A member of the RNA family "Ribosomal protein L20 leader" from Calderihabitans maritimus, 130 nucleotides long. The match comes from Rfam's covariance-model search (67 bits). A reference for the family is Zengel and Lindahl (1994), "Diverse mechanisms for regulating ribosomal protein synthesis in Escherichia coli", Prog Nucleic Acid Res Mol Biol. Rfam describes the family as follows. This family is a putative r-protein leader autoregulatory structure found in B. subtilis and other low-GC Gram-positive bacteria. It is located in the 5' untranslated regions of mRNAs encoding initiation factor 3 followed by ribosomal proteins L35 and L20 (infC-rpmI-rplT).
RNA sequence: AACAUAAAGUAGAAGCCGUCCGCUUCUCACCUUAUGGCGCCUCGAGCUGCUUAUAAGGUUUAUUACAAUGGUAAAUGGUAAUAGGAGUGCUUUUUUUGGCGGAUGGUUUCAUCCGCUUUUUUUCUGUAUA
Numbered sequence: 001a002a003c004a005u006a007a008a009g010u011a012g013a014a015g016c017c018g019u020c021c022g023c024u025u026c027u028c029a030c031c032u033u034a035u036g037g038c039g040c041c042u043c044g045a046g047c048u049g050c051u052u053a054u055a056a057g058g059u060u061u062a063u064u065a066c067a068a069u070g071g072u073a074a075a076u077g078g079u080a081a082u083a084g085g086a087g088u089g090c091u092u093u094u095u096u097u098g099g100c101g102g103a104u105g106g107u108u109u110c111a112u113c114c115g116c117u118u119u120u121u122u123u124c125u126g127u128a129u130a
Stems, first nucleotide, its partner, number of pairs: 011027006029059003036051003039047002098117008
Dot-bracket structure: ..........((((((.....)))))).(((....(((((.....)).))).....)))......................................((((((((....)))))))).............